[Rfam]
RNA sequence: GCUGGUGUAAAUGAUGACUUCACCUUUUUUCCCCAUCAGAUCGGCAAUGCUGAUGUCUUAGAACACUUGCCAGUUAGUCCUGACACACCGGC
Numbered sequence: 001g002c003u004g005g006u007g008u009a010a011a012u013g014a015u016g017a018c019u020u021c022a023c024c025u026u027u028u029u030u031c032c033c034c035a036u037c038a039g040a041u042c043g044g045c046a047a048u049g050c051u052g053a054u055g056u057c058u059u060a061g062a063a064c065a066c067u068u069g070c071c072a073g074u075u076a077g078u079c080c081u082g083a084c085a086c087a088c089c090g091g092c
Stems, first nucleotide, its partner, number of pairs: 001092008
RNA: Small nucleolar SNORD12/SNORD106
Organism: Tupaia belangeri